The record is a 129-nucleotide RNA sequence from Carlito syrichta, which matches "Small Cajal body specific RNA 4" in Rfam. Pairs were carried over by alignment from the consensus structure, which was predicted with RNAfold. From the family's description: scaRNAs are a specific class of small nuclear RNAs which localise to the Cajal bodies and guide the modification of RNA polymerase II transcribed spliceosomal RNAs U1, U2, U4, U5 and U12. ACA26 belongs to the H/ACA box class of guide RNAs as it has the predicted hairpin-hinge-hairpin-tail structure, conserved H/ACA-box motifs and is found associated with GAR1. The match comes from Rfam's covariance-model search (124 bits). The organism belongs to Carlito, within Eukaryota. Rfam links the family to the GO terms Cajal body, nucleolus and RNA processing. Its Rfam clan is "SCARNA4 clan". Rfam 15.1 lists 634 matches to the family in 510 species.
RNA sequence: ACUGGAGGAUUAAGAAGGCUGAAUCUGAUAAAGCAAGACUUUGCUGAUGCAUUCCUCCUAGGGAAAAGGGUUCCAGAGAUCAGCCCUUACUGGAGAAUAUCACAGGGCUGACUGUACUAACCAACAUUA
Numbered sequence: 001a002c003u004g005g006a007g008g009a010u011u012a013a014g015a016a017g018g019c020u021g022a023a024u025c026u027g028a029u030a031a032a033g034c035a036a037g038a039c040u041u042u043g044c045u046g047a048u049g050c051a052u053u054c055c056u057c058c059u060a061g062g063g064a065a066a067a068g069g070g071u072u073c074c075a076g077a078g079a080u081c082a083g084c085c086c087u088u089a090c091u092g093g094a095g096a097a098u099a100u101c102a103c104a105g106g107g108c109u110g111a112c113u114g115u116a117c118u119a120a121c122c123a124a125c126a127u128u129a
Base pairs, nucleotide, nucleotide: 002061003060004058005057006056007055008054009053017045018044019043021041022040024038025037026036068122069121071119079113081110082109083108084107085106086105087104091102092101093100
Dot-bracket structure: .((((((((.......(((.((.(((.........))).)).))).......)))))).))......((.(.......(.(((((((...(((......))).)))))))..).....).)).......